Shown here is a 74-nucleotide RNA from [Clostridium] fimetarium, a member of the family "tRNA". Taxonomically the source falls in Lachnoclostridium (Bacteria, Bacillati, Bacillota, Lachnospirales).
[Rfam]
RNA sequence: CGCGGGGUAGAGCAGUCUGGAAGCUCGUUGGGCUCAUAACCCAAAGGUCAUAGGUUCAAAUCCUGUCCCCGCUA
Numbered sequence: 001c002g003c004g005g006g007g008u009a010g011a012g013c014a015g016u017c018u019g020g021a022a023g024c025u026c027g028u029u030g031g032g033c034u035c036a037u038a039a040c041c042c043a044a045a046g047g048u049c050a051u052a053g054g055u056u057c058a059a060a061u062c063c064u065g066u067c068c069c070c071g072c073u074a
Stems, first nucleotide, its partner, number of pairs: 002072006010026004028044005050066005